The family of this 127-nucleotide sequence from Deinococcus yavapaiensis is "SAM riboswitch aptamer (S box leader)".
On this family, see Daldrop and Lilley, RNA 2013: "The plasticity of a structural motif in RNA: structural polymorphism of a kink turn as a function of its environment".
Gene Ontology term of the family: regulation of gene expression.
Clan: SAM clan.
The SAM riboswitch is found upstream of a number of genes which code for proteins involved in methionine or cysteine biosynthesis in Gram-positive bacteria. The SAM riboswitch acts at the level of transcription termination control. The predicted structure consists of a complex stem-loop region followed by a single stem loop terminator region. An alternative and mutually exclusive form involves bases in the 3' segment of helix 1 with those in the 5' region of helix 5 to form a structure termed the anti-terminator form.
The organism belongs to Deinococcus yavapaiensis, within Bacteria.
RNA sequence: CUCUUAUCCAGAGCACGUCAGGGACCUGGCCCUUCGAAGCGUGCAGCAACCGACCCUCAUCACGGUCAAGGUGCUUUCCAGCCUGAAGCGCGCCGACGAUGGCAUGACGCUUCGGGAGCGAUAAGAG
Number, nucleotide and partner (000 for none) at each position: 001c127002u126003c125004u124005u123006a122007u121008c120009c000010a000011g000012a000013g044014c043015a042016c041017g040018u000019c000020a000021g032022g031023g030024a000025c000026c081027u080028g079029g078030c023031c022032c021033u000034u000035c000036g000037a000038a000039g000040c017041g016042u015043g014044c013045a075046g074047c073048a072049a000050c071051c070052g067053a066054c065055c064056c000057u000058c000059a000060u000061c000062a000063c000064g055065g054066u053067c052068a000069a000070g051071g050072u048073g047074c046075u045076u000077u000078c029079c028080a027081g026082c116083c115084u114085g113086a112087a111088g110089c109090g108091c000092g000093c000094c000095g000096a000097c000098g000099a000100u000101g000102g000103c000104a000105u000106g000107a000108c090109g089110c088111u087112u086113c085114g084115g083116g082117a000118g000119c000120g008121a007122u006123a005124a004125g003126a002127g001